msiK RNA: a 62-nucleotide RNA sequence from Cellulomonas composti. By type it is a cis-regulatory element. A search with the family's covariance model found it, with a score of 64 bits.
RNA sequence: ACACAUCACCUUUCACAACGGAUCGUCCGGCACGUACCUGCCGGUGAAGGGAUCGGUAGCAA
Numbered sequence: 001a002c003a004c005a006u007c008a009c010c011u012u013u014c015a016c017a018a019c020g021g022a023u024c025g026u027c028c029g030g031c032a033c034g035u036a037c038c039u040g041c042c043g044g045u046g047a048a049g050g051g052a053u054c055g056g057u058a059g060c061a062a
Stems, first nucleotide, its partner, number of pairs: 009051007027044006